[Rfam]
Nucleotides: 094
Stems, first nucleotide, its partner, number of pairs: 017041006028052005058080007
Number, partner (000 for none) and nucleotide at each position: 001000u002000u003000a004000c005000g006000u007000u008000u009000c010000c011000u012000u013000u014000a015000c016000a017041c018040u019039u020038c021037u022036c023000a024000a025000a026000c027000c028052g029051g030050g031049a032048u033000c034000a035000a036022g037021a038020g039019a040018a041017g042000c043000a044000a045000a046000g047000c048032a049031u050030c051029c052028c053000u054000c055000a056000u057000a058080u059079c060078c061077a062076c063075g064074a065000u066000g067000g068000a069000g070000g071000g072000u073000g074064u075063c076062g077061u078060g079059g080058a081000g082000u083000a084000u085000a086000c087000u088000g089000u090000a091000c092000c093000a094000a
The record is a 94-nucleotide RNA, which matches "PhotoRC-II RNA" in Rfam. Rfam's curators put it in the seed alignment. Pairs were carried over by alignment from the consensus structure, which is taken from published work. Rfam classes the family as a cis-regulatory element.